RNA sequence: AAACCCCCGGGGGGGGGAAAACCCCUAAAAUUUGGGGGGUUUUUUGGUUUUUUUUUUGGGGGGAAAAAAGGCCCCCAAAAAACCCCCCCAAAAAGGGGUUUUUUUUUUUGGGGGUUUUUUUCCU
Numbered sequence: 001a002a003a004c005c006c007c008c009g010g011g012g013g014g015g016g017g018a019a020a021a022c023c024c025c026u027a028a029a030a031u032u033u034g035g036g037g038g039g040u041u042u043u044u045u046g047g048u049u050u051u052u053u054u055u056u057u058g059g060g061g062g063g064a065a066a067a068a069a070g071g072c073c074c075c076c077a078a079a080a081a082a083c084c085c086c087c088c089c090a091a092a093a094a095g096g097g098g099u100u101u102u103u104u105u106u107u108u109u110g111g112g113g114g115u116u117u118u119u120u121u122c123c124u
Stems, first nucleotide, its partner, number of pairs: 004063005011057005019042008072114005078109002080103003085098004
Dot-bracket structure: ...(((((..(((((...((((((((........))))))))..........))))).)))))........(((((.(((((..((((......))))..)))....)))))))..........

Shown here is a 124-nucleotide RNA sequence from Chionoecetes opilio, a member of the family "Small nucleolar RNA SNORA64/SNORA10 family". Rfam links the family to the GO terms nucleolus and RNA processing. It scores 36 bits against the family's covariance model. The family is grouped with related families in Rfam's "SNORA64 clan". The family's consensus secondary structure is taken from published work. The organism belongs to Chionoecetes, within Eukaryota. This family belongs to the H/ACA class of small nucleolar RNAs (snoRNAs) which act as guides in the the modification of uridines to pseudouridines. This family includes the human snoRNAs U64 and ACA10 and mouse MBI-29.